Rfam assigns this 137-nucleotide RNA from Stegodyphus mimosarum to the family "Small nucleolar RNA SNORA79". About the family: ACA65 (SNORA79) is a member of the H/ACA class of snoRNAs that guide the sites of modification of uridines to pseudouridines. This snoRNA was identified by computational screening and its expression in mouse experimentally verified by Northern blot and primer extension analysis. A reference for the family is Schattner et al. (2006), "A computational screen for mammalian pseudouridylation guide H/ACA RNAs", RNA. Rfam classes the family as an H/ACA-box small nucleolar RNA.
RNA sequence: UGACAGCUGUUCCUCGCUUGGCUGUGAGAUUAAGGCAUGCGAUUUUAGGCUGUCAUAAAUAAAUCUAGAACUAUUUCACCCAUGUUUGGAGGCUAUUUUAGCACUUUUCAUUCAUGGUUUUGCGGUAUCUCACAUAA
Dot-bracket structure: ((((((((.....((((..(.((.........)).)..)))).....))))))))............((..(.......((((....(((((............)))))....)))).......)..))........